[Rfam]
Nucleotides: 103
Stems, first nucleotide, its partner, number of pairs: 003101006013044001015043004022033003027078004045070004050066002052062001054060001074095001079092005
Number, partner (000 for none) and nucleotide at each position: 001000a002000g003101c004100u005099u006098a007097u008096u009000a010000a011000g012000a013044g014000c015043a016042a017041g018040c019000g020000g021000a022033g023032g024031g025000a026000a027078u028077u029076g030075g031024c032023c033022c034000a035000a036000u037000g038000a039000a040018g041017c042016u043015u044013c045070a046069g047068c048067a049000a050066c051065c052062g053000a054060c055000c056000u057000u058000u059000u060054g061000g062052c063000a064000c065051g066050g067048u068047g069046c070045u071000a072000a073000a074095u075030c076029c077028a078027a079092c080091a081090a082089g083088u084000g085000u086000g087000a088083a089082c090081u091080u092079g093000g094000a095074a096008a097007a098006u099005a100004a101003g102000a103000c